The record is a 78-nucleotide RNA sequence from Chanos chanos, which matches "mir-9/mir-79 microRNA precursor family" in Rfam. The source organism's lineage runs through Eukaryota, Eumetazoa, Actinopteri, Chanidae and Chanos. The family has 214 seed sequences and 5,647 matches in Rfam 15.1. Rfam links the family to the GO terms RISC complex and miRNA-mediated post-transcriptional gene silencing. Pairs were carried over by alignment from the consensus structure, which was predicted with RNAalifold. The literature on the family includes a 2001 paper in Science by Lagos-Quintana et al., "Identification of novel genes coding for small expressed RNAs". The match comes from Rfam's covariance-model search (65 bits).
[Rfam]
RNA sequence: CCAUUUCUACUUUCGGUUAUCUAGCUUUAUGAUGGUAAAAUAACACUCAUACAGCUAGAUAACCAAAGAUAGCAACCG
Numbered sequence: 001c002c003a004u005u006u007c008u009a010c011u012u013u014c015g016g017u018u019a020u021c022u023a024g025c026u027u028u029a030u031g032a033u034g035g036u037a038a039a040a041u042a043a044c045a046c047u048c049a050u051a052c053a054g055c056u057a058g059a060u061a062a063c064c065a066a067a068g069a070u071a072g073c074a075a076c077c078g
Stems, first nucleotide, its partner, number of pairs: 001078001004075002007072003011068003015064012028051005